Rfam assigns this 36-nucleotide RNA sequence from Cloacibacterium normanense to the family "DUF805b RNA".
RNA sequence: UCAGGGGAAGCCGAAAACCUGUCUUUAGAGUAGGUA
Numbered sequence: 001u002c003a004g005g006g007g008a009a010g011c012c013g014a015a016a017a018c019c020u021g022u023c024u025u026u027a028g029a030g031u032a033g034g035u036a
Stems, first nucleotide, its partner, number of pairs: 002021004010035003
Clan: DUF805 clan. Rfam classes the family as a cis-regulatory element. The source organism's lineage runs through Bacteria, Bacteroidota, Flavobacteriia, Flavobacteriales and Cloacibacterium.